[Rfam]
RNA sequence: UAUUCCUAAAACAACGAAAGCCCUGCCUCUCUUUCAUCCUUACGGCUCCUUGACCGUGCCAGUGUGAAUCAGGGGUGUAAAACCAAA
Numbered sequence: 001u002a003u004u005c006c007u008a009a010a011a012c013a014a015c016g017a018a019a020g021c022c023c024u025g026c027c028u029c030u031c032u033u034u035c036a037u038c039c040u041u042a043c044g045g046c047u048c049c050u051u052g053a054c055c056g057u058g059c060c061a062g063u064g065u066g067a068a069u070c071a072g073g074g075g076u077g078u079a080a081a082a083c084c085a086a087a
Stems, first nucleotide, its partner, number of pairs: 034067003039062002041058005047052001
The record is an 87-nucleotide sequence from Neobacillus mesonae, which matches "BsrC" in Rfam. For this family Rfam cites "Novel small RNA-encoding genes in the intergenic regions of Bacillus subtilis" (Saito et al., Gene, 2008). The source organism's lineage runs through Bacteria, Bacillati, Caryophanales, Bacillaceae and Neobacillus. The match comes from Rfam's covariance-model search (92 bits). It is annotated as a small RNA. Rfam describes the family as follows. The 301 nucleotide sequence from Kouji Nakamura has been trimmed to a highly conserved ~85 nucleotide long core to form this family. The base pairs follow the family's consensus structure, which was predicted with CMfinder.